[Rfam]
RNA sequence: UGUAGUUAGGUCUGUGGUUGAAAGUCGAGGCCAGUCGCAGGCAAAACGAUCCACGUAAGGUAAUUAAAAAAUUACUGAGCAUGGUGCGGCUUAGAGGUAAGUCCAGCCAGUCUGUAGGCUGAGAGAGGAAUGGUGACGGUAAUCCCGAAGCUAAACUUCCAGCUGGCGAGUGUGGGGGCAAAGACCAGGUCAGCUAAGUACA
Numbered sequence: 001u002g003u004a005g006u007u008a009g010g011u012c013u014g015u016g017g018u019u020g021a022a023a024g025u026c027g028a029g030g031c032c033a034g035u036c037g038c039a040g041g042c043a044a045a046a047c048g049a050u051c052c053a054c055g056u057a058a059g060g061u062a063a064u065u066a067a068a069a070a071a072u073u074a075c076u077g078a079g080c081a082u083g084g085u086g087c088g089g090c091u092u093a094g095a096g097g098u099a100a101g102u103c104c105a106g107c108c109a110g111u112c113u114g115u116a117g118g119c120u121g122a123g124a125g126a127g128g129a130a131u132g133g134u135g136a137c138g139g140u141a142a143u144c145c146c147g148a149a150g151c152u153a154a155a156c157u158u159c160c161a162g163c164u165g166g167c168g169a170g171u172g173u174g175g176g177g178g179c180a181a182a183g184a185c186c187a188g189g190u191c192a193g194c195u196a197a198g199u200a201c202a
Stems, first nucleotide, its partner, number of pairs: 001202004006197004012193003015187005028173001030171001031041001033091007050084002058076002062072001082180001103166005108121005125159004133151002137147003

Shown here is a 202-nucleotide RNA from Garciella nitratireducens, a member of the family "raiA RNA". The organism belongs to Garciella nitratireducens, within Bacteria. The base pairs follow the family's consensus structure, which is taken from published work. By type it is a riboswitch.